[Rfam]
RNA sequence: UGUCAGCUUGCGGGAGAGUGGCCAGUGUGCGAAUGCGCCGGUCCACCGAAGGGGAAAUCGCCCGAAAUCUCUCAGGUACCAGGAACCGCAAGCCGAUA
Numbered sequence: 001u002g003u004c005a006g007c008u009u010g011c012g013g014g015a016g017a018g019u020g021g022c023c024a025g026u027g028u029g030c031g032a033a034u035g036c037g038c039c040g041g042u043c044c045a046c047c048g049a050a051g052g053g054g055a056a057a058u059c060g061c062c063c064g065a066a067a068u069c070u071c072u073c074a075g076g077u078a079c080c081a082g083g084a085a086c087c088g089c090a091a092g093c094c095g096a097u098a
Stems, first nucleotide, its partner, number of pairs: 006093008020043004045077003048073002052071003058065002
RNA: Glycine riboswitch aptamer
Organism: Phyllobacterium sp. YR620